Notes
Rfam assigns this 51-nucleotide RNA from Muraenolepis orangiensis to the family "Guanidine-II riboswitch aptamer (mini-ykkC)". The match comes from Rfam's covariance-model search (35 bits). Pairs were carried over by alignment from the consensus structure, which is taken from published work. NCBI's taxonomy places the organism under Eukaryota, Opisthokonta, Metazoa, Vertebrata, Muraenolepis. Rfam describes the family as follows. Simpler in structure and has fewer highly conserved nucleotide positions than the ykkC-yxkD leader. Despite this each of its two stem-loop structures directly bind free guanidine.

RNA sequence: UACGGAGGACGACCUCCCCAAGCACCGCGUUGAAGUAGGAGGACGACCUCC
Numbered sequence: 001u002a003c004g005g006a007g008g009a010c011g012a013c014c015u016c017c018c019c020a021a022g023c024a025c026c027g028c029g030u031u032g033a034a035g036u037a038g039g040a041g042g043a044c045g046a047c048c049u050c051c
Stems, first nucleotide, its partner, number of pairs: 001020001004017005038051005
Dot-bracket structure: (..(((((....)))))..).................(((((....)))))